[Rfam]
RNA sequence: UGUUUAGGUAUCUGACGGAUUUCUAGAUAAUGUUAGAAACAAGGCGUAAUUUUUAAUUGCGAUAAGCCUGCUAUUUGUAGGAUCCCUUAAGAGAAAACUUUUAUAUAAAAUAAAAGAUAAACUUGCGAAUUGAAACAUCUCAGUAGCAAGUAUAGAAAUUAAAAAAGACUUUGAAAGUAGCGGCGAGUGAACUCAAAGGUAAGCACAAAGUAUAUUUUAAAGUAAUUUUUAAACCAUAGAAGGUCAUUGAGUCCUGUAACUUUAGUCAAUACUUUGAUAAUAGUAAAUCGAGAAAUGUUAUCUUGAUUGAAAAUAGGAGAACCAUCUUCUAAUGCUUAGGUCUAACAUUAAUCGAUAGUGUACAAGUACUGUGAAGGAAAGAAUGAAAUCAGACUACUCUUU
Dot-bracket structure: .......((.(((((.....(((..(((((((((((....(((((((...........))).....(((((.....)))))...))))..(((....))).....................(((((.....((....))......)))))........((....))..((((((.....((.....))....)))))....((((..........((..(((((....(.....(...).(((.........)))...)..........)))))....)).....((((((((.......))))))))......(((((......)))))..))))..)..))))))))).))...............((....))....))).....)))))..)).....

Record summary:
This 402-nucleotide part of an RNA belongs to the Rfam family "Bacterial large subunit ribosomal RNA". The match comes from Rfam's covariance-model search (1517 bits). Pairs were carried over by alignment from the consensus structure, which is taken from published work.